[Rfam]
RNA sequence: UUGCUCUUGUCUUGGCGCCCUAUCAUCAUAAACAUGAUUCGGUGUAUGUAACAGGAGCUAAAGUAUGUCCUUUGGAUGUCAGGCUACUUCGGUGCUGGGUGUUUAAAUCCCAGUAUUAUCCUCUGGGCUUGGAACAUUU
Numbered sequence: 001u002u003g004c005u006c007u008u009g010u011c012u013u014g015g016c017g018c019c020c021u022a023u024c025a026u027c028a029u030a031a032a033c034a035u036g037a038u039u040c041g042g043u044g045u046a047u048g049u050a051a052c053a054g055g056a057g058c059u060a061a062a063g064u065a066u067g068u069c070c071u072u073u074g075g076a077u078g079u080c081a082g083g084c085u086a087c088u089u090c091g092g093u094g095c096u097g098g099g100u101g102u103u104u105a106a107a108u109c110c111c112a113g114u115a116u117u118a119u120c121c122u123c124u125g126g127g128c129u130u131g132g133a134a135c136a137u138u139u
Base pairs, nucleotide, nucleotide: 003058004057005056006055007054008053009052010051015045016044017043018042023037024036025035026034068076069075070074079132080131081130082129083128084126085125091117092116095113096112097111098110099109
The record is a 139-nucleotide RNA sequence from Mesorhabditis belari, which matches "Nematode snoRNA ceN88" in Rfam. On this family, see Jia et al., BMC Mol Biol 2007: "Systematic identification of non-coding RNA 2,2,7-trimethylguanosine cap structures in Caenorhabditis elegans". Gene Ontology terms of the family: RNA processing and nucleolus.